[Rfam]
Rfam assigns this 195-nucleotide RNA from Methylobacterium terrae to the family "caulobacter sRNA CC2171". A search with the family's covariance model found it, with a score of 100 bits. For this family Rfam cites "Small non-coding RNAs in Caulobacter crescentus" (Landt et al., Mol Microbiol, 2008). The base pairs follow the family's consensus structure, which was predicted with RNAalifold.
RNA sequence: CAACAACAGGAAGGAGGUGAUCCAGUGUCUCAUUGUCAUCAGCCGCGGUCGUCUGCGCGCCGGACCUGGAUCGUCGCCUCCGGCUUCAAGGCCUGAGCGUACGACGAACAGUCCAGGAUCGGUAGAUCCUGACAGAUCGACGAGUCGAACCGCGGUUCGGCAAUGGAAGGGCCGCCCUGGCAACGGGGCGGCCCU
Numbered sequence: 001c002a003a004c005a006a007c008a009g010g011a012a013g014g015a016g017g018u019g020a021u022c023c024a025g026u027g028u029c030u031c032a033u034u035g036u037c038a039u040c041a042g043c044c045g046c047g048g049u050c051g052u053c054u055g056c057g058c059g060c061c062g063g064a065c066c067u068g069g070a071u072c073g074u075c076g077c078c079u080c081c082g083g084c085u086u087c088a089a090g091g092c093c094u095g096a097g098c099g100u101a102c103g104a105c106g107a108a109c110a111g112u113c114c115a116g117g118a119u120c121g122g123u124a125g126a127u128c129c130u131g132a133c134a135g136a137u138c139g140a141c142g143a144g145u146c147g148a149a150c151c152g153c154g155g156u157u158c159g160g161c162a163a164u165g166g167a168a169g170g171g172c173c174g175c176c177c178u179g180g181c182a183a184c185g186g187g188g189c190g191g192c193c194c195u
Stems, first nucleotide, its partner, number of pairs: 016023002031165007044069001047066004073105003077099001079097001082093004168195012